[Rfam]
RNA sequence: ACUGUGGAGUGUCAAACAAAAAGUCGGUAGCUACGGCAAAGACGGACACGCAGAAGCAGUAA
Numbered sequence: 001a002c003u004g005u006g007g008a009g010u011g012u013c014a015a016a017c018a019a020a021a022a023g024u025c026g027g028u029a030g031c032u033a034c035g036g037c038a039a040a041g042a043c044g045g046a047c048a049c050g051c052a053g054a055a056g057c058a059g060u061a062a
Base pairs, nucleotide, nucleotide: 001060002059003058004057005056009049010048011047012046013045023043024042030037031036
This 62-nucleotide RNA sequence belongs to the Rfam family "RAGATH-18 RNA".